[Rfam]
RNA sequence: UGCUGCCCGCGUGAGGGAUAGAAGCGGCAUCCUUUUUUUGCCGGGUAAAACCCGGAAAAAAAAGAUAGAGCGGAGAGCCCGGCCCGAA
Numbered sequence: 001u002g003c004u005g006c007c008c009g010c011g012u013g014a015g016g017g018a019u020a021g022a023a024g025c026g027g028c029a030u031c032c033u034u035u036u037u038u039u040g041c042c043g044g045g046u047a048a049a050a051c052c053c054g055g056a057a058a059a060a061a062a063a064g065a066u067a068g069a070g071c072g073g074a075g076a077g078c079c080c081g082g083c084c085c086g087a088a
Base pairs, nucleotide, nucleotide: 015080016079017078019076024071025070029066030065031064035061036060037059038058039057041055042054043053044052045051046050